[Rfam]
RNA sequence: UUCCGAGUUAUAACUCGGAAUUUUAAAAUUCCGUGUUAUAACUCGGAAUAUUAGAUGUAAAAUUCCGAGUUAUAACUCGGAAUUUUAAAAUUCCGAGAUAUAAGUCGGAAUUUUGAUGUAAAAUUCCGAGUUAUAACUCGGAAUUUUAAAA
Numbered sequence: 001u002u003c004c005g006a007g008u009u010a011u012a013a014c015u016c017g018g019a020a021u022u023u024u025a026a027a028a029u030u031c032c033g034u035g036u037u038a039u040a041a042c043u044c045g046g047a048a049u050a051u052u053a054g055a056u057g058u059a060a061a062a063u064u065c066c067g068a069g070u071u072a073u074a075a076c077u078c079g080g081a082a083u084u085u086u087a088a089a090a091u092u093c094c095g096a097g098a099u100a101u102a103a104g105u106c107g108g109a110a111u112u113u114u115g116a117u118g119u120a121a122a123a124u125u126c127c128g129a130g131u132u133a134u135a136a137c138u139c140g141g142a143a144u145u146u147u148a149a150a151a
Stems, first nucleotide, its partner, number of pairs: 003080006013070004018065007026052002030048001032045002035042002090145001092143001109124001111122003125142007
Notes: Rfam assigns this 151-nucleotide RNA from Phaedon cochleariae to the family "Small Cajal body specific RNA 1". scaRNAs are a specific class of small nuclear RNAs which localise to the Cajal bodies and guide the modification of RNA polymerase II transcribed spliceosomal RNAs U1, U2, U4, U5 and U12. ACA35 belong to the H/ACA box class of guide RNAs as it has the predicted hairpin-hinge-hairpin-tail structure, conserved H/ACA-box motifs and is found associated with GAR1. It is annotated as a small Cajal body RNA. For this family Rfam cites "Cajal body-specific small nuclear RNAs: a novel class of 2'-O-methylation and pseudouridylation guide RNAs" (Darzacq et al., EMBO J, 2002). Gene Ontology terms of the family: nucleolus, RNA processing and Cajal body.